[Rfam]
RNA sequence: UUUAUGGUUUUCUAUGGUUCCCGUAGUUUGUACUAGCUGGUUCGAGAGAAAACACACAAGUAUAUUUGUGGACACGGAAAGAUAAAAGCUUGGGAGAU
Numbered sequence: 001u002u003u004a005u006g007g008u009u010u011u012c013u014a015u016g017g018u019u020c021c022c023g024u025a026g027u028u029u030g031u032a033c034u035a036g037c038u039g040g041u042u043c044g045a046g047a048g049a050a051a052a053c054a055c056a057c058a059a060g061u062a063u064a065u066u067u068g069u070g071g072a073c074a075c076g077g078a079a080a081g082a083u084a085a086a087a088g089c090u091u092g093g094g095a096g097a098u
Base pairs, nucleotide, nucleotide: 007053008052009051010050011049012048016042020040021039023037024035025034026033027032055070056069057068058067059066060065073093075096079091080090081089

The record is a 98-nucleotide sequence from Intestinibacter bartlettii, which matches "Guanidine-I riboswitch aptamer" in Rfam.
Gene Ontology term of the family: regulation of gene expression.
The literature on the family includes a 2004 paper in Proc Natl Acad Sci U S A by Barrick et al., "New RNA motifs suggest an expanded scope for riboswitches in bacterial genetic control".
The base pairs follow the family's consensus structure.